A member of the RNA family "Bacterial RNase P class B" from Desulfotomaculum nigrificans, 351 nucleotides long.
RNA sequence: UACAGUGAGUAGUCGCUGUCUCGUUUUAACGGGGCAGAGGAAAGUCGAGACACGCACACCAGGUUGGAGAAGCCAAGAGGCAACAACCGGUGUAAAAUGGUGCCCGGCGCAAGCCGGGGCAGGGCGACCUGACGACGGCAAAAGUGACUCUCCGAGUUGCAAGUAGCCAUAAAGUGCCACAGAAACUAUGUCACCGGGCGACCGGUGAGUGCAAGGGUAAACUCCACCAGCGUGCAACCCAAAUAGGCGGGAACAAUUUGUUACCUGCGGGUAGGGGCACCUCGCUAAGCGAGGAAGGAGAUUAUGUCUCCUUAGAUAGAUGACUACUAAAACAGAAUCUCGCUUACGGCU
Numbered sequence: 001u002a003c004a005g006u007g008a009g010u011a012g013u014c015g016c017u018g019u020c021u022c023g024u025u026u027u028a029a030c031g032g033g034g035c036a037g038a039g040g041a042a043a044g045u046c047g048a049g050a051c052a053c054g055c056a057c058a059c060c061a062g063g064u065u066g067g068a069g070a071a072g073c074c075a076a077g078a079g080g081c082a083a084c085a086a087c088c089g090g091u092g093u094a095a096a097a098u099g100g101u102g103c104c105c106g107g108c109g110c111a112a113g114c115c116g117g118g119g120c121a122g123g124g125c126g127a128c129c130u131g132a133c134g135a136c137g138g139c140a141a142a143a144g145u146g147a148c149u150c151u152c153c154g155a156g157u158u159g160c161a162a163g164u165a166g167c168c169a170u171a172a173a174g175u176g177c178c179a180c181a182g183a184a185a186c187u188a189u190g191u192c193a194c195c196g197g198g199c200g201a202c203c204g205g206u207g208a209g210u211g212c213a214a215g216g217g218u219a220a221a222c223u224c225c226a227c228c229a230g231c232g233u234g235c236a237a238c239c240c241a242a243a244u245a246g247g248c249g250g251g252a253a254c255a256a257u258u259u260g261u262u263a264c265c266u267g268c269g270g271g272u273a274g275g276g277g278c279a280c281c282u283c284g285c286u287a288a289g290c291g292a293g294g295a296a297g298g299a300g301a302u303u304a305u306g307u308c309u310c311c312u313u314a315g316a317u318a319g320a321u322g323a324c325u326a327c328u329a330a331a332a333c334a335g336a337a338u339c340u341c342g343c344u345u346a347c348g349g350c351u
Stems, first nucleotide, its partner, number of pairs: 004351003007347001008328007016037006042345003046342005051234005056093005098229005103118006119133001120131004134224002137168003145159006174222002176218003191208007238276003280294006295313008